[Rfam]
RNA sequence: CCUCAAGGAACAUCGGCUAAGACCGCCACGUCCUGUGGUAACGCCGAUGUGACCCGCAUUCUGCGGG
Numbered sequence: 001c002c003u004c005a006a007g008g009a010a011c012a013u014c015g016g017c018u019a020a021g022a023c024c025g026c027c028a029c030g031u032c033c034u035g036u037g038g039u040a041a042c043g044c045c046g047a048u049g050u051g052a053c054c055c056g057c058a059u060u061c062u063g064c065g066g067g
Stems, first nucleotide, its partner, number of pairs: 011049007025039005053067005
Bacillaceae-1 RNA: a 67-nucleotide RNA from Lederbergia citrea. It scores 78 bits against the family's covariance model. By type it is a small RNA.